[Rfam]
RNA sequence: GCUACUUUGGUGGAAUCGGUAGACACGACGCACUUAAAAUGCGUUACUUAUAAGUAUAAAAGUUCAAGUCUUUUAAGUAGCA
Numbered sequence: 001g002c003u004a005c006u007u008u009g010g011u012g013g014a015a016u017c018g019g020u021a022g023a024c025a026c027g028a029c030g031c032a033c034u035u036a037a038a039a040u041g042c043g044u045u046a047c048u049u050a051u052a053a054g055u056a057u058a059a060a061a062g063u064u065c066a067a068g069u070c071u072u073u074u075a076a077g078u079a080g081c082a
Stems, first nucleotide, its partner, number of pairs: 001081007010026003028044005058074005